[Rfam]
RNA sequence: UCGGCGGUAUCCCAUCGGGAGCUGCACGAUUUCCCGCAUUUUGAUUGUUUGACAAGGGAAUCUUUUUUUGAUUCUGCUCUGAGCCCAUGGGACGGAGACAGAGGU
Numbered sequence: 001u002c003g004g005c006g007g008u009a010u011c012c013c014a015u016c017g018g019g020a021g022c023u024g025c026a027c028g029a030u031u032u033c034c035c036g037c038a039u040u041u042u043g044a045u046u047g048u049u050u051g052a053c054a055a056g057g058g059a060a061u062c063u064u065u066u067u068u069u070g071a072u073u074c075u076g077c078u079c080u081g082a083g084c085c086c087a088u089g090g091g092a093c094g095g096a097g098a099c100a101g102a103g104g105u
Stems, first nucleotide, its partner, number of pairs: 001029003004025005010020002074101003077097005084091002
Overview:
The family of this 105-nucleotide RNA sequence from Paludifilum halophilum is "pan motif".